[Rfam]
RNA sequence: CUUGUGGACUGUUAUACAAACCUAAGUAGCUAUUACUAAACUAAUAGUAGAACGGGGACAGGAAGAAACAGGAA
Numbered sequence: 001c002u003u004g005u006g007g008a009c010u011g012u013u014a015u016a017c018a019a020a021c022c023u024a025a026g027u028a029g030c031u032a033u034u035a036c037u038a039a040a041c042u043a044a045u046a047g048u049a050g051a052a053c054g055g056g057g058a059c060a061g062g063a064a065g066a067a068a069c070a071g072g073a074a
Base pairs, nucleotide, nucleotide: 001072002071003070004069005068009061010060011059012058013057021056022055023054029048030047031046033044034043

RAGATH-18 RNA: a 74-nucleotide sequence from Tybeckvirus tv521B. The organism belongs to Tybeckvirus tv521B, within Viruses. By type it is a small RNA.